[Rfam]
RNA sequence: CGGUUUCCUGCUUCAGCAGUGCUCGGACGGAACCG
Numbered sequence: 001c002g003g004u005u006u007c008c009u010g011c012u013u014c015a016g017c018a019g020u021g022c023u024c025g026g027a028c029g030g031a032a033c034c035g
Stems, first nucleotide, its partner, number of pairs: 001035005007030002010028001012027003016023001017021001
Notes:
Iron response element I: a 35-nucleotide RNA from Nyctereutes procyonoides. The match comes from Rfam's covariance-model search (37 bits). On this family, see Hentze et al., Science 1987: "Identification of the iron-responsive element for the translational regulation of human ferritin mRNA". The family has 62 seed sequences and 6,829 matches in Rfam 15.1. Rfam classes the family as a cis-regulatory element.